Shown here is a 175-nucleotide sequence from Sutcliffiella cohnii, a member of the family "Group II catalytic intron D1-D4-3".
RNA sequence: UCCGUGGCGACGCGGAAUCUGAAGGAAGCCCUAGGCAAACCCUCGGUCUGAGGUACACGAACCACAUUCGAGGUUCUCUGUUCUAGGAUGAGUUUGCUAAACAAAACAAAGUCCGAAAUAUCCCCAGAUAGAACAGGAAUAAAUGUGGCAGAUAUAUGAGGGGAAAGUGGAUGAA
Numbered sequence: 001u002c003c004g005u006g007g008c009g010a011c012g013c014g015g016a017a018u019c020u021g022a023a024g025g026a027a028g029c030c031c032u033a034g035g036c037a038a039a040c041c042c043u044c045g046g047u048c049u050g051a052g053g054u055a056c057a058c059g060a061a062c063c064a065c066a067u068u069c070g071a072g073g074u075u076c077u078c079u080g081u082u083c084u085a086g087g088a089u090g091a092g093u094u095u096g097c098u099a100a101a102c103a104a105a106a107c108a109a110a111g112u113c114c115g116a117a118a119u120a121u122c123c124c125c126a127g128a129u130a131g132a133a134c135a136g137g138a139a140u141a142a143a144u145g146u147g148g149c150a151g152a153u154a155u156a157u158g159a160g161g162g163g164a165a166a167g168u169g170g171a172u173g174a175a
Stems, first nucleotide, its partner, number of pairs: 001016006030173001032171001035168002040162006046153005062148006073140003078136007086114004092107004
For this family Rfam cites "Control of branch-site choice by a group II intron" (Chu et al., EMBO J, 2001).